[Rfam]
RNA: mraW RNA
RNA sequence: UCGGUGGGGUUGGACCAGAUCUCCAGCCGCCCGUCAGCAUCGUCCUGGCUCCACUUCCCCGGAGCCAGGCGGAUGAGGAUCGGAGCGGAGGGGGAUCUGGCCCAAUCCCUACACCACG
Numbered sequence: 001u002c003g004g005u006g007g008g009g010u011u012g013g014a015c016c017a018g019a020u021c022u023c024c025a026g027c028c029g030c031c032c033g034u035c036a037g038c039a040u041c042g043u044c045c046u047g048g049c050u051c052c053a054c055u056u057c058c059c060c061g062g063a064g065c066c067a068g069g070c071g072g073a074u075g076a077g078g079a080u081c082g083g084a085g086c087g088g089a090g091g092g093g094g095a096u097c098u099g100g101c102c103c104a105a106u107c108c109c110u111a112c113a114c115c116a117c118g
Stems, first nucleotide, its partner, number of pairs: 010105004015100002018097002021094004027088004031083003038075004044069008